RNA: Ribosomal protein L10 leader
Organism: Caproiciproducens galactitolivorans
Nucleotides: 142
Base pairs, nucleotide, nucleotide: 028064029063030062031061032060033059034041035040101127102126103125104124105123106122107121108120109119110118
Number, partner (000 for none) and nucleotide at each position: 001000a002000u003000a004000u005000u006000g007000c008000u009000g010000u011000u012000c013000u014000u015000u016000a017000u018000u019000c020000c021000a022000a023000a024000g025000a026000c027000a028064g029063c030062a031061g032060g033059c034041g035040c036000g037000u038000u039000c040035g041034c042000u043000u044000a045000a046000u047000g048000g049000g050000u051000u052000u053000u054000u055000c056000c057000c058000a059033g060032c061031c062030u063029g064028c065000c066000g067000a068000g069000g070000a071000g072000a073000g074000a075000g076000c077000u078000g079000u080000u081000u082000u083000u084000a085000c086000a087000c088000g089000u090000u091000g092000u093000g094000u095000a096000u097000u098000u099000a100000c101127g102126c103125c104124c105123u106122u107121c108120c109119c110118g111000c112000g113000g114000u115000a116000u117000g118110u119109g120108g121107g122106a123105a124104g125103g126102g127101c128000u129000u130000u131000u132000u133000a134000u135000g136000u137000g138000a139000u140000u141000c142000c